[Rfam]
Source information
This 197-nucleotide RNA from Streptomyces fuscichromogenes belongs to the Rfam family "c-di-AMP riboswitch aptamer (ydaO/yuaA leader)". The source organism's lineage runs through Bacteria, Actinomycetota, Kitasatosporales, Streptomycetaceae and Streptomyces. About the family: This family represents a conserved RNA structure found upstream of the ydaO and yuaA genes in Bacillus subtilis and related genes in other bacteria. The ydaO/yuaA element is thought to act as a genetic 'off' switch for the ydaO and yuaA genes in its native state. It is believed that the element may be triggered during osmotic shock leading to activation of ydaO, a predicted amino acid transporter gene, and members of the yuaA-yubG operon which code for KtrA and KtrB K+ transporters. Rfam links the family to the GO terms regulation of gene expression and cyclic-di-AMP binding.

RNA sequence: CGUAACCCAUCAACGAGUUCAUUCGCACGGCAGGAGCGGGGAACCCAGGUAAGUCGCCGGACCGGGCGACCGACGUCAGCGGACAGACGUCGUUCCGGAACGGCUAGGGGUGAAGUCGCAUCGUCUUCGGGCGGUGCGGCCGGGCACUCCCCGGGCCCGAACCCGACAGCUCACCUCGCAGGCGACGGAGAGGAACA
Numbered sequence: 001c002g003u004a005a006c007c008c009a010u011c012a013a014c015g016a017g018u019u020c021a022u023u024c025g026c027a028c029g030g031c032a033g034g035a036g037c038g039g040g041g042a043a044c045c046c047a048g049g050u051a052a053g054u055c056g057c058c059g060g061a062c063c064g065g066g067c068g069a070c071c072g073a074c075g076u077c078a079g080c081g082g083a084c085a086g087a088c089g090u091c092g093u094u095c096c097g098g099a100a101c102g103g104c105u106a107g108g109g110g111u112g113a114a115g116u117c118g119c120a121u122c123g124u125c126u127u128c129g130g131g132c133g134g135u136g137c138g139g140c141c142g143g144g145c146a147c148u149c150c151c152c153g154g155g156c157c158c159g160a161a162c163c164c165g166a167c168a169g170c171u172c173a174c175c176u177c178g179c180a181g182g183c184g185a186c187g188g189a190g191a192g193g194a195a196c197a
Stems, first nucleotide, its partner, number of pairs: 001181001006034002036179006046107001108164003116139009142158004